RNA sequence: UGAGUAAGCUGGAUGGUCGCUGCCUCGUAAGAGGGAGAGGAAAGUCCGAGCUCCGUAGGCAGGGUGCCGGGUAAUACCCGGUGGAGGCGACUCUAAGGAAAGUGCAACAGAGAUAUACCGCCCAUUUUAAGGUUGGAUGUUAGAGAUUAGAAUUUUGAUUUAAAUUUCUGAUAUCUAAUUUCUAACAUCCAACCUCUAAAUGUGGUAAGGGUGGAAAGGUGAGGUAAGAGCUCACCAGCACACUGGCGACUGUGUGGCUAUGUAAACCCCACCUGGAGCAAGAUCGAAUAGGGGAGCAUUUUAACGUCGGCCCGGCGUGCUCCCGGGUAGUAUCGCUUGAGCUAUCUGGUAACAGAUAGCCUAGAUAGAUGACCGUCUAAGACAGAACUCGGCUUAUAGGCUUACUCAGUUU
Numbered sequence: 001u002g003a004g005u006a007a008g009c010u011g012g013a014u015g016g017u018c019g020c021u022g023c024c025u026c027g028u029a030a031g032a033g034g035g036a037g038a039g040g041a042a043a044g045u046c047c048g049a050g051c052u053c054c055g056u057a058g059g060c061a062g063g064g065u066g067c068c069g070g071g072u073a074a075u076a077c078c079c080g081g082u083g084g085a086g087g088c089g090a091c092u093c094u095a096a097g098g099a100a101a102g103u104g105c106a107a108c109a110g111a112g113a114u115a116u117a118c119c120g121c122c123c124a125u126u127u128u129a130a131g132g133u134u135g136g137a138u139g140u141u142a143g144a145g146a147u148u149a150g151a152a153u154u155u156u157g158a159u160u161u162a163a164a165u166u167u168c169u170g171a172u173a174u175c176u177a178a179u180u181u182c183u184a185a186c187a188u189c190c191a192a193c194c195u196c197u198a199a200a201u202g203u204g205g206u207a208a209g210g211g212u213g214g215a216a217a218g219g220u221g222a223g224g225u226a227a228g229a230g231c232u233c234a235c236c237a238g239c240a241c242a243c244u245g246g247c248g249a250c251u252g253u254g255u256g257g258c259u260a261u262g263u264a265a266a267c268c269c270c271a272c273c274u275g276g277a278g279c280a281a282g283a284u285c286g287a288a289u290a291g292g293g294g295a296g297c298a299u300u301u302u303a304a305c306g307u308c309g310g311c312c313c314g315g316c317g318u319g320c321u322c323c324c325g326g327g328u329a330g331u332a333u334c335g336c337u338u339g340a341g342c343u344a345u346c347u348g349g350u351a352a353c354a355g356a357u358a359g360c361c362u363a364g365a366u367a368g369a370u371g372a373c374c375g376u377c378u379a380a381g382a383c384a385g386a387a388c389u390c391g392g393c394u395u396a397u398a399g400g401c402u403u404a405c406u407c408a409g410u411u412u
Stems, first nucleotide, its partner, number of pairs: 001408010011397001012377007020037002023034004042395003046392005051278004058312003062274005067081005082096001083094004097269002102267002104263003118210002120206003126200003218236006238258001239256005245250001282334003285330001292324006304318005341360008

The family of this 412-nucleotide RNA sequence from Fervidicella metallireducens is "Bacterial RNase P class A". Its family is annotated with dimeric ribonuclease P complex, ribonuclease P activity and tRNA processing in the Gene Ontology. Ribonuclease P (RNase P) is a ubiquitous endoribonuclease, found in archaea, bacteria and eukarya as well as chloroplasts and mitochondria. The base pairs follow the family's consensus structure, which is taken from published work.